[Rfam]
Bacterial large subunit ribosomal RNA: a 437-nucleotide part of an RNA from Akkermansia muciniphila.
The base pairs follow the family's consensus structure, which is taken from published work.
The source organism's lineage runs through Bacteria, Pseudomonadati, Verrucomicrobiia, Verrucomicrobiales and Akkermansia.
RNA sequence: CUCUUCGAAAUGCAUUUAGGUGCAGCGUCACGUGCUGAUGCGCGGGGGUAGAGCACUGACAAGGCUAGGGGGCACACCCGCUUACCAAACCUUAUCAAACUCCGAAUACCGUGCAAUGGAACGUGGCAGUGAGACAGUGGGGGAUAAGCUUCAUUGUCGAGAGGGAAACAACCCAGAUCAGCAGCUAAGGUGCCUAAAUAACGCUCAGUGGAAAGGAUGUGGGAUUACACAGACAGUGAGGAUGUUGGCUUAGAAGCAGCCACCAUUUAAAAAAUGCGUAAUAGCUUACUCAUCGAGUGAUCCUGCGCCGAAAAUGAUUGGCGAUCAAGCGUUAUACCGAAGCUCUGGACUUUGCCGCAAGGCAGAGUGGUAGAAGAGCGUUGCAUGCGCGUCGAAGGGCGAUGGCGACUGACCCUGGAGCACAUGCAAGUGAGUAU
Dot-bracket structure: ((((((....(((((....))))).((((((((..((.(((((((.....(((...(((.((((...((((((......)))).))...)))).)))..)).).....))))))).)..)))))))).)...((((((((((......))))))))))....(((......)))...((((.(((...(((......(((((((..........((..((((((((((.......(((((.(((..(((.........)))..)))(...)(...((......)).).)))))...)))))))))).))...................))))))))))...)))))))((((((((....))))))))....))))))(.(((((((.((......(((....(....)....)))...)).)))))))..).....